[Rfam]
RNA sequence: AGAUGAGGUAGAGGAGCAGGAAACAAGAGUACAUUAUGUGAGUAUGACAACGAUGAUCAUAAUGGAAAGGGUUUUUUGCCGAAGUGAAUGUACGCAGUCAGGCGUCAUUUGCUGGUAUUACUUUGAAUAAGAGUAAUACUGUCAUUAUAGAGUUUCAUUUAGGACUUUGUUCUUAAAUGUAAACAACACGUUUUUAUUCUAUAAUGGAGGGCUACUGAUCGG
Numbered sequence: 001a002g003a004u005g006a007g008g009u010a011g012a013g014g015a016g017c018a019g020g021a022a023a024c025a026a027g028a029g030u031a032c033a034u035u036a037u038g039u040g041a042g043u044a045u046g047a048c049a050a051c052g053a054u055g056a057u058c059a060u061a062a063u064g065g066a067a068a069g070g071g072u073u074u075u076u077u078g079c080c081g082a083a084g085u086g087a088a089u090g091u092a093c094g095c096a097g098u099c100a101g102g103c104g105u106c107a108u109u110u111g112c113u114g115g116u117a118u119u120a121c122u123u124u125g126a127a128u129a130a131g132a133g134u135a136a137u138a139c140u141g142u143c144a145u146u147a148u149a150g151a152g153u154u155u156c157a158u159u160u161a162g163g164a165c166u167u168u169g170u171u172c173u174u175a176a177a178u179g180u181a182a183a184c185a186a187c188a189c190g191u192u193u194u195u196a197u198u199c200u201a202u203a204a205u206g207g208a209g210g211g212c213u214a215c216u217g218a219u220c221g222g
Stems, first nucleotide, its partner, number of pairs: 007216005016079009032064007083113008092105004114140011142207012
Rfam assigns this 222-nucleotide RNA from Metabacillus harenarius to the family "Lysine riboswitch aptamer". Gene Ontology term of the family: lysine biosynthetic process. NCBI's taxonomy places the organism under Bacteria, Bacillota, Bacilli, Bacillaceae, Metabacillus.